RNA sequence: GGAAGAUAAUAAACUGUUUCUUAGCUUUUAACUAAAAAGGCUAAGAACCGGUUCUUAAAGUCCCUAUUUAAGAACCAAUUUUUAGUUUUUUUUAGUUAAAAGUUAAGAAACAGUUUCUUAACUUCC
Numbered sequence: 001g002g003a004a005g006a007u008a009a010u011a012a013a014c015u016g017u018u019u020c021u022u023a024g025c026u027u028u029u030a031a032c033u034a035a036a037a038a039g040g041c042u043a044a045g046a047a048c049c050g051g052u053u054c055u056u057a058a059a060g061u062c063c064c065u066a067u068u069u070a071a072g073a074a075c076c077a078a079u080u081u082u083u084a085g086u087u088u089u090u091u092u093u094a095g096u097u098a099a100a101a102g103u104u105a106a107g108a109a110a111c112a113g114u115u116u117c118u119u120a121a122c123u124u125c126c
Stems, first nucleotide, its partner, number of pairs: 001126005007120003011116029041085007
Dot-bracket structure: (((((.(((.(((((((((((((((((((((((((((((.(((((((...............................)))))))..))))))))))))))))))))))))))))).))).)))))

This 126-nucleotide sequence from Brassica oleracea belongs to the Rfam family "MIR9563 microRNA precursor family".
The source organism's lineage runs through Eukaryota, Streptophytina, Brassicaceae, Brassiceae and Brassica oleracea.
Its family is annotated with RISC complex and miRNA-mediated post-transcriptional gene silencing in the Gene Ontology.